[Rfam]
A member of the RNA family "Group II catalytic intron D1-D4-2" from Saccharopolyspora phatthalungensis, 121 nucleotides long.
NCBI's taxonomy places the organism under Bacteria, Actinomycetes, Pseudonocardiales, Pseudonocardiaceae, Saccharopolyspora.
About the family: Group II introns are found in rRNA, tRNA and mRNA of organelles in fungi, plants and protists, and also in mRNA in bacteria.
Rfam links the family to the GO term Group II intron splicing.
The pairing is the family consensus, mapped onto this sequence.
On this family, see Chu et al., EMBO J 2001: "Control of branch-site choice by a group II intron".
A search with the family's covariance model found it, with a score of 95 bits.
Nucleotides: 121
Base pairs, nucleotide, nucleotide: 001018002017003016004015005014019044020043021042022041023040024039026037027036028035049120051095052094053093054092055091056089057083058082060080061079062078064076065075066074100117101116102115103114104113105112
Number, partner (000 for none) and nucleotide at each position: 001018g002017a003016g004015g005014g006000u007000u008000u009000c010000u011000g012000g013000c014005c015004c016003c017002u018001c019044g020043g021042a022041g023040u024039c025000g026037c027036c028035u029000g030000g031000c032000g033000g034000a035028g036027g037026g038000a039024g040023g041022c042021u043020c044019c045000a046000a047000a048000c049120c050000g051095c052094c053093u054092c055091c056089g057083g058082c059000u060080g061079c062078g063000u064076u065075g066074g067000c068000u069000g070000a071000a072000g073000a074066c075065c076064g077000u078062c079061g080060u081000g082058g083057u084000g085000a086000g087000c088000g089056c090000a091055g092054g093053a094052g095051g096000a097000a098000a099000a100117g101116g102115c103114g104113u105112c106000c107000a108000g109000g110000a111000g112105g113104g114103c115102g116101u117100c118000a119000g120049g121000u